[Rfam]
RNA sequence: GGGUUACUCCUGCGCUUGCACGCUGUUUUGAAUAAAGAUUCGCACCUCUAUCAAAACGGGUAACCCCACCUGCUGGCAAGGCUGACUGUCAGACCAAAUCUGAACUUCUACAAAUUACUCAAUGGCAGUCGCGCCCGCUGGAUACCAUUUACCCCAUCAUUUACCUUGACUGCAUUGUGAUUAAAAUCCAUGGCAAUUUACACGUGA
Numbered sequence: 001g002g003g004u005u006a007c008u009c010c011u012g013c014g015c016u017u018g019c020a021c022g023c024u025g026u027u028u029u030g031a032a033u034a035a036a037g038a039u040u041c042g043c044a045c046c047u048c049u050a051u052c053a054a055a056a057c058g059g060g061u062a063a064c065c066c067c068a069c070c071u072g073c074u075g076g077c078a079a080g081g082c083u084g085a086c087u088g089u090c091a092g093a094c095c096a097a098a099u100c101u102g103a104a105c106u107u108c109u110a111c112a113a114a115u116u117a118c119u120c121a122a123u124g125g126c127a128g129u130c131g132c133g134c135c136c137g138c139u140g141g142a143u144a145c146c147a148u149u150u151a152c153c154c155c156a157u158c159a160u161u162u163a164c165c166u167u168g169a170c171u172g173c174a175u176u177g178u179g180a181u182u183a184a185a186a187u188c189c190a191u192g193g194c195a196a197u198u199u200a201c202a203c204g205u206g207a
Stems, first nucleotide, its partner, number of pairs: 001066007009059002012023003025057006032051003036047002074147003080139001088105002090102004165206001167204001176202005181196001
RNA: Proteobacterial sRNA psRNA2